[Rfam]
RNA sequence: GGUAAGAGUAGAUUAUCAGCGAUAGUGACUAAAAAUGGGACGUUGUUUUAGUACGAAUAAAUUUUUUAAAUUUGCGAUUGAUAAUCGCGUUCACUACU
Numbered sequence: 001g002g003u004a005a006g007a008g009u010a011g012a013u014u015a016u017c018a019g020c021g022a023u024a025g026u027g028a029c030u031a032a033a034a035a036u037g038g039g040a041c042g043u044u045g046u047u048u049u050a051g052u053a054c055g056a057a058u059a060a061a062u063u064u065u066u067u068a069a070a071u072u073u074g075c076g077a078u079u080g081a082u083a084a085u086c087g088c089g090u091u092c093a094c095u096a097c098u
Stems, first nucleotide, its partner, number of pairs: 001098003005095002011086009020076002025054002028052007038092005059073004
Rfam assigns this 98-nucleotide sequence from Helcococcus kunzii to the family "THF (Tetrahydrofolate) riboswitch aptamer". Its family is annotated with tetrahydrofolate metabolic process in the Gene Ontology. A search with the family's covariance model found it, with a score of 56 bits. On this family, see Trausch et al., Structure 2011: "The structure of a tetrahydrofolate-sensing riboswitch reveals two ligand binding sites in a single aptamer".